[Rfam]
RNA sequence: CACGAUAAAGGCAAACCACGGGUGACCGUGGGACGCAAAGUAACAGGGUCUUUUGUCGGGGCGUAUGAUAAUGCGCCUCACAUCUCCGUAUAAAGACAGCCUUACUGCCGAAG
Dot-bracket structure: (.((......((...((((((....))))))..[))..((((..(((((((((......................................)))))).])))))))..))..)
RNA: c-di-GMP-I-GGC riboswitch aptamer
Organism: Candidatus Brocadia fulgida